[Rfam]
RNA: L20-Deltaproteobacteria ribosomal protein leader
RNA sequence: AGUCGUGAACUGGGGGGACAUUUCCAGUCUCCCCCUCCAGAUCCGGCGCAAUACCACAGAAGGAG
Dot-bracket structure: ..(((.((.((((((((...............)))))))).)))))...................